Group I catalytic intron: a 291-nucleotide sequence from Monoraphidium neglectum. On this family, see Cech, Annu Rev Biochem 1990: "Self-splicing of group I introns". Taxonomically the source falls in Monoraphidium (Eukaryota, Viridiplantae, Chlorophyta, core chlorophytes). Rfam describes the family as follows. Group I catalytic introns are large self-splicing ribozymes.
RNA sequence: AAGUAUAAGCUCUAGCGCAAGUGGGUGAGAAAUCACCUGCUAUACACUGUCAAAUUGCGGGAAAAUCCUAAAGCUCUGCAUACCAAACUGCUGACUGAAAAGUCACAGUGGCCGGGUUAAUGACCUAGGGUAAGGUAAAAACUGCAGAGAUGCAACAAUGGACUAUCCGCAGCCAAAUCCUACAGGAUCCCACCAACUCUGGUGAGAUUUCAUGGAUGCAGUUCACAGACUAAAUGGCAGUGGGCAGCUUUUGCUGCUUAAGAUAUAGUCGGUCCCUAUCGAGAGAUAGUC
Numbered sequence: 001a002a003g004u005a006u007a008a009g010c011u012c013u014a015g016c017g018c019a020a021g022u023g024g025g026u027g028a029g030a031a032a033u034c035a036c037c038u039g040c041u042a043u044a045c046a047c048u049g050u051c052a053a054a055u056u057g058c059g060g061g062a063a064a065a066u067c068c069u070a071a072a073g074c075u076c077u078g079c080a081u082a083c084c085a086a087a088c089u090g091c092u093g094a095c096u097g098a099a100a101a102g103u104c105a106c107a108g109u110g111g112c113c114g115g116g117u118u119a120a121u122g123a124c125c126u127a128g129g130g131u132a133a134g135g136u137a138a139a140a141a142c143u144g145c146a147g148a149g150a151u152g153c154a155a156c157a158a159u160g161g162a163c164u165a166u167c168c169g170c171a172g173c174c175a176a177a178u179c180c181u182a183c184a185g186g187a188u189c190c191c192a193c194c195a196a197c198u199c200u201g202g203u204g205a206g207a208u209u210u211c212a213u214g215g216a217u218g219c220a221g222u223u224c225a226c227a228g229a230c231u232a233a234a235u236g237g238c239a240g241u242g243g244g245c246a247g248c249u250u251u252u253g254c255u256g257c258u259u260a261a262g263a264u265a266u267a268g269u270c271g272g273u274c275c276c277u278a279u280c281g282a283g284a285g286a287u288a289g290u291c
Base pairs, nucleotide, nucleotide: 045242046241047240048239049238051236052235056171057170058169059168060167061166066162067161068160172222173221177217178216179215180214185210186209187208188207189206226271228270229269230268231267232266244257245256246255247254248253276289277288278287279286280285